[Rfam]
RNA sequence: AAGACUGUGUGUGACUGGCGAGACACGGAUCACCGUGAGGGAGCACAUUGUAUCGUAUAGCCGUUCGCCUGGGCAGAGGUA
Numbered sequence: 001a002a003g004a005c006u007g008u009g010u011g012u013g014a015c016u017g018g019c020g021a022g023a024c025a026c027g028g029a030u031c032a033c034c035g036u037g038a039g040g041g042a043g044c045a046c047a048u049u050g051u052a053u054c055g056u057a058u059a060g061c062c063g064u065u066c067g068c069c070u071g072g073g074c075a076g077a078g079g080u081a
Base pairs, nucleotide, nucleotide: 004051005050007048008047009046010045011044012043015040016039017069018068019067020066021065025036026035027034028033058076060074061073062072
Source information
Rfam assigns this 81-nucleotide sequence from Neobacillus mesonae to the family "ZMP/ZTP riboswitch aptamer (pfl RNA motif)".